Description
Shown here is a 129-nucleotide RNA sequence from Jeotgalibaca sp. PTS2502, a member of the family "FMN riboswitch aptamer (RFN element)". On this family, see Vitreschak et al., Nucleic Acids Res 2002: "Regulation of riboflavin biosynthesis and transport genes in bacteria by transcriptional and translational attenuation".
RNA sequence: AAACGUCUUCAGGGCAGGGUGAAAUUCCCGACCGGUGGUUAGAGUCCACGAGCUUUUAUCCGUUUUGAUAAAAGUUGAACUGGUGAAAUUCCAGUACCGACAGUAUAGUCUGGAUGGAAGAAGAUAAUG
Dot-bracket structure: ....((((((......(((.......))).[[((((((.....[[))))..(((..................)))...(((((.......)))))]])).(((....]]))).......))))))....
Numbered sequence: 001a002a003a004c005g006u007c008u009u010c011a012g013g014g015c016a017g018g019g020u021g022a023a024a025u026u027c028c029c030g031a032c033c034g035g036u037g038g039u040u041a042g043a044g045u046c047c048a049c050g051a052g053c054u055u056u057u058a059u060c061c062g063u064u065u066u067g068a069u070a071a072a073a074g075u076u077g078a079a080c081u082g083g084u085g086a087a088a089u090u091c092c093a094g095u096a097c098c099g100a101c102a103g104u105a106u107a108g109u110c111u112g113g114a115u116g117g118a119a120g121a122a123g124a125u126a127a128u129g
Stems, first nucleotide, its partner, number of pairs: 005125006017029003031109002033099002035049004044097002052075003079095005101112003